[Rfam]
RNA: mir-393 microRNA precursor family
Organism: Gossypium raimondii
RNA sequence: AGAGGAGGGAUCCAAAGGGAUCGCAUUGAUCCUUUAUAUUUAUUUUUAAAAAGAUUUUACCCUAAUUUUGGAUCAUGCUAUCCCUUUGGAUUCCUCCUU
Numbered sequence: 001a002g003a004g005g006a007g008g009g010a011u012c013c014a015a016a017g018g019g020a021u022c023g024c025a026u027u028g029a030u031c032c033u034u035u036a037u038a039u040u041u042a043u044u045u046u047u048a049a050a051a052a053g054a055u056u057u058u059a060c061c062c063u064a065a066u067u068u069u070g071g072a073u074c075a076u077g078c079u080a081u082c083c084c085u086u087u088g089g090a091u092u093c094c095u096c097c098u099u
Stems, first nucleotide, its partner, number of pairs: 002099005008093014023078004028074005036067001